[Rfam]
RNA sequence: AUUGGUUGAAAAUCACCCCCGGGCUUUGGCCAUGGCUGCAGGUGAGAUUCGAUGCCCAGAGCCUCCAGGGCCUCAGCUCACCACACACUGCCCCAUGUGUGGCGGUGAAACCCAGGCCCCAACGGAU
Numbered sequence: 001a002u003u004g005g006u007u008g009a010a011a012a013u014c015a016c017c018c019c020c021g022g023g024c025u026u027u028g029g030c031c032a033u034g035g036c037u038g039c040a041g042g043u044g045a046g047a048u049u050c051g052a053u054g055c056c057c058a059g060a061g062c063c064u065c066c067a068g069g070g071c072c073u074c075a076g077c078u079c080a081c082c083a084c085a086c087a088c089u090g091c092c093c094c095a096u097g098u099g100u101g102g103c104g105g106u107g108a109a110a111c112c113c114a115g116g117c118c119c120c121a122a123c124g125g126a127u
Stems, first nucleotide, its partner, number of pairs: 005053006013045004022037004068120001069118005078108005086099003
The record is a 127-nucleotide RNA from Theropithecus gelada, which matches "Small nucleolar RNA ACA64" in Rfam. A search with the family's covariance model found it, with a score of 110 bits. The base pairs follow the family's consensus structure, which was predicted with WAR. By type it is an H/ACA-box small nucleolar RNA.